[Rfam]
RNA sequence: CGGCGACUGAUCACGCCGUAGUCUGAUAGCUGGCUCGUCCCCCGCCGCGUCAGACCGGACAAAGGCCUAUCCCCCCUCUCCGGGCCUUUGUCCUUCAACAUAACCGCCAUGGCUGUCCCUCCCGGCCAUGGCGGUUUUUU
Numbered sequence: 001c002g003g004c005g006a007c008u009g010a011u012c013a014c015g016c017c018g019u020a021g022u023c024u025g026a027u028a029g030c031u032g033g034c035u036c037g038u039c040c041c042c043c044g045c046c047g048c049g050u051c052a053g054a055c056c057g058g059a060c061a062a063a064g065g066c067c068u069a070u071c072c073c074c075c076c077u078c079u080c081c082g083g084g085c086c087u088u089u090g091u092c093c094u095u096c097a098a099c100a101u102a103a104c105c106g107c108c109a110u111g112g113c114u115g116u117c118c119c120u121c122c123c124g125g126c127c128a129u130g131g132c133g134g135u136u137u138u139u140u
Stems, first nucleotide, its partner, number of pairs: 022054006032046003057093011102136001104134012
Shown here is a 140-nucleotide RNA from Agrobacterium bohemicum, a member of the family "Alphaproteobacterial sRNA ar7". On this family, see del Val et al., RNA Biol 2012: "A survey of sRNA families in alpha-proteobacteria". Lineage of the source: Bacteria > Pseudomonadati > Alphaproteobacteria > Hyphomicrobiales > Agrobacterium. A search with the family's covariance model found it, with a score of 116 bits.